[Rfam]
RNA sequence: UAUCACUAAGGAAUGUUUUUCUCGCCAUAUAUUUCAGCGAGAGACGGAAAGGACUCAGACCAAUCACACUGGUUGGUUUAGAUUCAUAAAAAUAAAGGAACAG
Numbered sequence: 001u002a003u004c005a006c007u008a009a010g011g012a013a014u015g016u017u018u019u020u021c022u023c024g025c026c027a028u029a030u031a032u033u034u035c036a037g038c039g040a041g042a043g044a045c046g047g048a049a050a051g052g053a054c055u056c057a058g059a060c061c062a063a064u065c066a067c068a069c070u071g072g073u074u075g076g077u078u079u080a081g082a083u084u085c086a087u088a089a090a091a092a093u094a095a096a097g098g099a100a101c102a103g
Base pairs, nucleotide, nucleotide: 020042021041022040023039024038025037059077060076061075062074063073064072065071
RNA: gltS RNA
Organism: Vibrio genomosp. F10